[Rfam]
RNA sequence: UGGCAUCCACUGAUAGACCUGCUGCCUUUAUCAGUGGCCUCUGGGUUUGCACAGCGAUGCAAAACUAAUCCUCCUCGCGCUUUCGAGCUGUCUGUGCAGUGGCAGAAGCAGAUUGAAGAGAGGAGAACAGUC
Numbered sequence: 001u002g003g004c005a006u007c008c009a010c011u012g013a014u015a016g017a018c019c020u021g022c023u024g025c026c027u028u029u030a031u032c033a034g035u036g037g038c039c040u041c042u043g044g045g046u047u048u049g050c051a052c053a054g055c056g057a058u059g060c061a062a063a064a065c066u067a068a069u070c071c072u073c074c075u076c077g078c079g080c081u082u083u084c085g086a087g088c089u090g091u092c093u094g095u096g097c098a099g100u101g102g103c104a105g106a107a108g109c110a111g112a113u114u115g116a117a118g119a120g121a122g123g124a125g126a127a128c129a130g131u132c
Base pairs, nucleotide, nucleotide: 003060004059005058006057007056011051012050014049015048016047017046018045019044024038025037026036028034072124073123074122075121076120080115083112084111085109088105089104090103091102092101
The family of this 132-nucleotide RNA sequence from Ameiurus melas is "Small nucleolar RNA SNORA31". ACA31 (SNORA31) belongs to the H/ACA class of snoRNAs which are thought to guide the sites of modification of uridines to pseudouridines. ACA31 is predicted to guide the pseudouridylation of U3713 in 28S rRNA and U218 in 18S rRNA. This family includes the mouse homologue snoMBI-161. It is annotated as an H/ACA-box small nucleolar RNA. The organism belongs to Ameiurus, within Eukaryota. The literature on the family includes a 2001 paper in EMBO J by Huttenhofer et al., "RNomics: an experimental approach that identifies 201 candidates for novel, small, non-messenger RNAs in mouse".